TPP riboswitch aptamer (THI element): a 100-nucleotide sequence from Alkalicoccus halolimnae.
The source organism's lineage runs through Bacteria, Bacillati, Bacillota, Bacillaceae and Alkalicoccus.
From the family's description: Vitamin B(1) in its active form thiamin pyrophosphate (TPP) is an essential coenzyme that is synthesised by coupling of pyrimidine and thiazole moieties in bacteria.
Gene Ontology term of the family: thiamine pyrophosphate binding.
RNA sequence: GUUUACCACUAGGGGUGCUUCAAGCUGAGACAGGUUUACGCCUGAUCCCUUUGAACCUGAUCUGGUUUAUACCAGCGUAGGAAAGUGGAACGACUUAUCG
Numbered sequence: 001g002u003u004u005a006c007c008a009c010u011a012g013g014g015g016u017g018c019u020u021c022a023a024g025c026u027g028a029g030a031c032a033g034g035u036u037u038a039c040g041c042c043u044g045a046u047c048c049c050u051u052u053g054a055a056c057c058u059g060a061u062c063u064g065g066u067u068u069a070u071a072c073c074a075g076c077g078u079a080g081g082a083a084a085g086u087g088g089a090a091c092g093a094c095u096u097a098u099c100g
Base pairs, nucleotide, nucleotide: 006088007087008086009085010084011050012049013048014047016044017025018024019023032043033042034041035040056081057080058079059078062075063074064073065072